[Rfam]
RNA sequence: GUCGGCAACGGCAAUGGAUUCCUGCCGGGCCUCGCGCCGAACCGCCAUUGAGGGCUGAUGAUUCCUACCUGCGG
Numbered sequence: 001g002u003c004g005g006c007a008a009c010g011g012c013a014a015u016g017g018a019u020u021c022c023u024g025c026c027g028g029g030c031c032u033c034g035c036g037c038c039g040a041a042c043c044g045c046c047a048u049u050g051a052g053g054g055c056u057g058a059u060g061a062u063u064c065c066u067a068c069c070u071g072c073g074g
Stems, first nucleotide, its partner, number of pairs: 010026004016065003020061002044055003
The record is a 74-nucleotide sequence from Sphingomonas sp. MM-1, which matches "Fluoride riboswitch aptamer (crcB RNA motif)" in Rfam. It scores 43 bits against the family's covariance model. The family's consensus secondary structure is taken from published work. NCBI's taxonomy places the organism under Bacteria, Pseudomonadati, Alphaproteobacteria, Sphingomonadales, Sphingomonas. Gene Ontology terms of the family: positive regulation of gene expression and response to fluoride.